[Rfam]
RNA sequence: GUGUCCUGACCUCAUCCUGCUGCUCCCCUCACCAGACCUGUGGUGGUGGGGCCUGGGGGUGGACACAGAUCAACUUCUCAUGUUAGGAGGGCUGCCAAAGACAUGUGCAAGCCCUUAAAGGCAAGAGAGGACACU
Number, nucleotide and partner (000 for none) at each position: 001g000002u065003g064004u063005c062006c061007u000008g000009a000010c058011c057012u000013c000014a000015u000016c000017c000018u000019g000020c000021u000022g052023c051024u050025c000026c000027c048028c000029u046030c045031a044032c043033c000034a000035g000036a000037c000038c000039u000040g000041u000042g000043g032044u031045g030046g029047u000048g027049g000050g024051g023052c022053c000054u000055g000056g000057g011058g010059g000060u000061g006062g005063a004064c003065a002066c000067a000068g000069a000070u000071c000072a000073a000074c130075u129076u128077c127078u126079c125080a000081u000082g000083u120084u119085a000086g000087g116088a115089g114090g113091g112092c111093u110094g108095c107096c105097a104098a000099a000100g000101a000102c000103a000104u097105g096106u000107g095108c094109a000110a093111g092112c091113c090114c089115u088116u087117a000118a000119a084120g083121g000122c000123a000124a000125g079126a078127g077128a076129g075130g074131a000132c000133a000134c000135u000
Small Cajal body specific RNA 11: a 135-nucleotide sequence from Aegotheles bennettii. Its family is annotated with Cajal body, RNA processing and nucleolus in the Gene Ontology. The match comes from Rfam's covariance-model search (66 bits). The literature on the family includes a 2002 paper in EMBO J by Darzacq et al., "Cajal body-specific small nuclear RNAs: a novel class of 2'-O-methylation and pseudouridylation guide RNAs". scaRNAs are a specific class of small nuclear RNAs which localise to the Cajal bodies and guide the modification of RNA polymerase II transcribed spliceosomal RNAs U1, U2, U4, U5 and U12. ACA57 belongs to the H/ACA box class of guide RNAs as it has the predicted hairpin-hinge-hairpin-tail structure, conserved H/ACA-box motifs and is found associated with GAR1. ACA57 is predicted to guide the pseudouridylation of the U5 spliceosomal RNA at position U43. Lineage of the source: Eukaryota > Gnathostomata > Tetrapoda > Theropoda > Aegotheles. Pairs were carried over by alignment from the consensus structure, which was predicted with RNAalifold.